[Rfam]
RNA sequence: CUUGACCGAUCCCAGCCACAGCGGCCGGUCCUCCGGCCGGCCCUGGCCGUAGGUCGCCAUGAGCGCCUGCGCCUC
Numbered sequence: 001c002u003u004g005a006c007c008g009a010u011c012c013c014a015g016c017c018a019c020a021g022c023g024g025c026c027g028g029u030c031c032u033c034c035g036g037c038c039g040g041c042c043c044u045g046g047c048c049g050u051a052g053g054u055c056g057c058c059a060u061g062a063g064c065g066c067c068u069g070c071g072c073c074u075c
Stems, first nucleotide, its partner, number of pairs: 015025003031071001033069001038065002044059002047056001049054001